[Rfam]
RNA sequence: CCACGCUUGACGGGGUGCCGUUGAUGACGGCUGAGAUCAUGCCUCUCGCCACCGGGCGACAGCAUGGGUCCCGUUGAACCUGAACUGGCUAGGACCAGCGUAGGGAUCAAGCGAUCGAGCAGA
Numbered sequence: 001c002c003a004c005g006c007u008u009g010a011c012g013g014g015g016u017g018c019c020g021u022u023g024a025u026g027a028c029g030g031c032u033g034a035g036a037u038c039a040u041g042c043c044u045c046u047c048g049c050c051a052c053c054g055g056g057c058g059a060c061a062g063c064a065u066g067g068g069u070c071c072c073g074u075u076g077a078a079c080c081u082g083a084a085c086u087g088g089c090u091a092g093g094a095c096c097a098g099c100g101u102a103g104g105g106a107u108c109a110a111g112c113g114a115u116c117g118a119g120c121a122g123a
Stems, first nucleotide, its partner, number of pairs: 006111005011073004016067001017031005038066005079104004085098004